RNA sequence: AUAUGGCUUGGUGGCGAUCAAGUGGAUAGAUUGUUAGUUUAAAUAAUGAAAUUUGAGAUAGCGCACUCCAGGCAUGAAAUACUGCUGACAAAAGCGCUCGCACCCCCUUACGGGUUACAAAUAGGGGAGGGCGAAAGUAGGUAUAAGUGACAGCACAAGACCUCCAAAAUGAGCUAUGCUGAGUAGCUCCCAGCUAAGUCUUAUUAUUCUAUAAGAUAUGCUGAAACGUGCCGAGAUGGGUCAAAUACACGAUGAGGACACGAACAUAGCCCCGAAAGGGGCAGCUUGUAGGGCGUGGAAUGAACGCAAGCAAAAAGUUCGUUCAAGGGUUGAGAUACCUUUGAAGUUUGUAACCC
Numbered sequence: 001a002u003a004u005g006g007c008u009u010g011g012u013g014g015c016g017a018u019c020a021a022g023u024g025g026a027u028a029g030a031u032u033g034u035u036a037g038u039u040u041a042a043a044u045a046a047u048g049a050a051a052u053u054u055g056a057g058a059u060a061g062c063g064c065a066c067u068c069c070a071g072g073c074a075u076g077a078a079a080u081a082c083u084g085c086u087g088a089c090a091a092a093a094g095c096g097c098u099c100g101c102a103c104c105c106c107c108u109u110a111c112g113g114g115u116u117a118c119a120a121a122u123a124g125g126g127g128a129g130g131g132c133g134a135a136a137g138u139a140g141g142u143a144u145a146a147g148u149g150a151c152a153g154c155a156c157a158a159g160a161c162c163u164c165c166a167a168a169a170u171g172a173g174c175u176a177u178g179c180u181g182a183g184u185a186g187c188u189c190c191c192a193g194c195u196a197a198g199u200c201u202u203a204u205u206a207u208u209c210u211a212u213a214a215g216a217u218a219u220g221c222u223g224a225a226a227c228g229u230g231c232c233g234a235g236a237u238g239g240g241u242c243a244a245a246u247a248c249a250c251g252a253u254g255a256g257g258a259c260a261c262g263a264a265c266a267u268a269g270c271c272c273c274g275a276a277a278g279g280g281g282c283a284g285c286u287u288g289u290a291g292g293g294c295g296u297g298g299a300a301u302g303a304a305c306g307c308a309a310g311c312a313a314a315a316a317g318u319u320c321g322u323u324c325a326a327g328g329g330u331u332g333a334g335a336u337a338c339c340u341u342u343g344a345a346g347u348u349u350g351u352a353a354c355c356c
Base pairs, nucleotide, nucleotide: 007022008021009020010019011018012017060098061097062096063095064094071086072085073084074083104127105126106125107124108123112356113355114354115353116352117351118350119349120348153231154230155229156228171189172188173187174186175185176184191223192222193221194220198217199216200215201214202213203212204211260322261321262320263319264318265317269282270281271280272279284311285310286309287308288307289306323344324343325342326341327340328339329338